[Rfam]
A member of the RNA family "Vault RNA" from Sapajus apella, 100 nucleotides long. From the family's description: This family of RNAs are found as part of the enigmatic vault ribonucleoprotein complex. The complex consists of a major vault protein (MVP), two minor vault proteins (VPARP and TEP1), and several small untranslated RNA molecules. It has been suggested that the vault complex is involved in drug resistance. It scores 60 bits against the family's covariance model. The organism belongs to Sapajus, within Eukaryota.
RNA sequence: GGGCCAGCUUUAGCUCAGUGGUUACUUCAACAAUGCUUUCCUUGGUGGAGAACAACCACUCUGCGUGGUUCAAGACCCGCGGGCGCUCUCCGGCCUUAAA
Numbered sequence: 001g002g003g004c005c006a007g008c009u010u011u012a013g014c015u016c017a018g019u020g021g022u023u024a025c026u027u028c029a030a031c032a033a034u035g036c037u038u039u040c041c042u043u044g045g046u047g048g049a050g051a052a053c054a055a056c057c058a059c060u061c062u063g064c065g066u067g068g069u070u071c072a073a074g075a076c077c078c079g080c081g082g083g084c085g086c087u088c089u090c091c092g093g094c095c096u097u098a099a100a
Stems, first nucleotide, its partner, number of pairs: 002095004007090001013084004018080004026074002030070001